[Rfam]
RNA sequence: UGCACCUUUAAUUCAGUCCCGUGAGGCUGGCAAGGUAACGUGAAUCGAGGUUCGCGCUCUAAUUGGAAGAUAUCCGUAUGUAUACGGAUGCUCUCUUUUUAUGCGCGCGGCCAAUCAUCCUUCUUCAUCUACGGAUUUCACUCCUUGCCUACCUUGGGCAAGGAGUUUUUUUGU
Numbered sequence: 001u002g003c004a005c006c007u008u009u010a011a012u013u014c015a016g017u018c019c020c021g022u023g024a025g026g027c028u029g030g031c032a033a034g035g036u037a038a039c040g041u042g043a044a045u046c047g048a049g050g051u052u053c054g055c056g057c058u059c060u061a062a063u064u065g066g067a068a069g070a071u072a073u074c075c076g077u078a079u080g081u082a083u084a085c086g087g088a089u090g091c092u093c094u095c096u097u098u099u100u101a102u103g104c105g106c107g108c109g110g111c112c113a114a115u116c117a118u119c120c121u122u123c124u125u126c127a128u129c130u131a132c133g134g135a136u137u138u139c140a141c142u143c144c145u146u147g148c149c150u151a152c153c154u155u156g157g158g159c160a161a162g163g164a165g166u167u168u169u170u171u172u173g174u
Base pairs, nucleotide, nucleotide: 004036005035006034007033008032013030014029015028016027017026018025065096066095067094069092071090072089073088074087075086076085077084078083140166141165142164143163144162145161146160147159148158149157150156
The record is a 174-nucleotide RNA from Paenibacillus monticola, which matches "PyrR binding site" in Rfam. A search with the family's covariance model found it, with a score of 60 bits. For this family Rfam cites "Molecular recognition of pyr mRNA by the Bacillus subtilis attenuation regulatory protein PyrR" (Bonner et al., Nucleic Acids Res, 2001). Its family is annotated with pyrimidine nucleobase biosynthetic process and pyrimidine nucleobase transport in the Gene Ontology. NCBI's taxonomy places the organism under Bacteria, Bacillati, Bacillota, Caryophanales, Paenibacillus.